RNA sequence: UAGAACAAUGUAGGUAAGGGAAGUCGGCAAAUCGGAUCCGUAACUUCGGGACAAGGAUUGGCUCUGAGGAUUGGGGCAGUCGGGCCGGAUCAGGAAGUAGUGUGUGCUCACGUGCUGGGCCUGGACGAGGCUCUUUUCGGAGGGCUGAGUUCGGUCCCAUGCCGCGGCCUGCUAUGGAUUGGUUCGGCUAGGAGUGCCGCUGGCUGUAACAGGCUGGUGGAAUCACGCUCUUCGGCUUCCAUUGAACAAUCAACUCAGAACUGGCACGGACCGGGGGAAUCCGACUGUCUAAUUAAAACAAAGCAUUGUGAUGGCUCUUGCGGGUGUUGACACAAUGUGAUUUCUGCCCAGUGCUUUGAAUGUCAAAGUGAAGAAAUUCAUCCAAGCGCAAGUAAACGGCGGGAGUAACUAUGACUCUCUUAAGGUAGCCAAAUGCCUCGUCAUCUAAUUAGUGACGCGCAUGAAUGGAUUAACGAGAUUCCCACUGUCCCUAUCUACUAUCUAGCGAAACCACAGCCAAGGGAACGGGCUUGGGC
Numbered sequence: 001u002a003g004a005a006c007a008a009u010g011u012a013g014g015u016a017a018g019g020g021a022a023g024u025c026g027g028c029a030a031a032u033c034g035g036a037u038c039c040g041u042a043a044c045u046u047c048g049g050g051a052c053a054a055g056g057a058u059u060g061g062c063u064c065u066g067a068g069g070a071u072u073g074g075g076g077c078a079g080u081c082g083g084g085c086c087g088g089a090u091c092a093g094g095a096a097g098u099a100g101u102g103u104g105u106g107c108u109c110a111c112g113u114g115c116u117g118g119g120c121c122u123g124g125a126c127g128a129g130g131c132u133c134u135u136u137u138c139g140g141a142g143g144g145c146u147g148a149g150u151u152c153g154g155u156c157c158c159a160u161g162c163c164g165c166g167g168c169c170u171g172c173u174a175u176g177g178a179u180u181g182g183u184u185c186g187g188c189u190a191g192g193a194g195u196g197c198c199g200c201u202g203g204c205u206g207u208a209a210c211a212g213g214c215u216g217g218u219g220g221a222a223u224c225a226c227g228c229u230c231u232u233c234g235g236c237u238u239c240c241a242u243u244g245a246a247c248a249a250u251c252a253a254c255u256c257a258g259a260a261c262u263g264g265c266a267c268g269g270a271c272c273g274g275g276g277g278a279a280u281c282c283g284a285c286u287g288u289c290u291a292a293u294u295a296a297a298a299c300a301a302a303g304c305a306u307u308g309u310g311a312u313g314g315c316u317c318u319u320g321c322g323g324g325u326g327u328u329g330a331c332a333c334a335a336u337g338u339g340a341u342u343u344c345u346g347c348c349c350a351g352u353g354c355u356u357u358g359a360a361u362g363u364c365a366a367a368g369u370g371a372a373g374a375a376a377u378u379c380a381u382c383c384a385a386g387c388g389c390a391a392g393u394a395a396a397c398g399g400c401g402g403g404a405g406u407a408a409c410u411a412u413g414a415c416u417c418u419c420u421u422a423a424g425g426u427a428g429c430c431a432a433a434u435g436c437c438u439c440g441u442c443a444u445c446u447a448a449u450u451a452g453u454g455a456c457g458c459g460c461a462u463g464a465a466u467g468g469a470u471u472a473a474c475g476a477g478a479u480u481c482c483c484a485c486u487g488u489c490c491c492u493a494u495c496u497a498c499u500a501u502c503u504a505g506c507g508a509a510a511c512c513a514c515a516g517c518c519a520a521g522g523g524a525a526c527g528g529g530c531u532u533g534g535g536c
Stems, first nucleotide, its partner, number of pairs: 001504004010498007018490003035059005044049001060262002063259006069251005075240002078237006084188003088184004097175004106169001108167002111164002116159004121154006129146007263267001275483007282475002286300003303338008314325004342469003346400003351397002353393004358389001361388003368381005401419006420424001440456005517534005
A member of the RNA family "Eukaryotic large subunit ribosomal RNA" from Folsomia candida, 536 nucleotides of a longer RNA.
For this family Rfam cites "Crystal structure of the ribosome at 5.5 A resolution" (Yusupov et al., Science, 2001).
The match comes from Rfam's covariance-model search (3097 bits).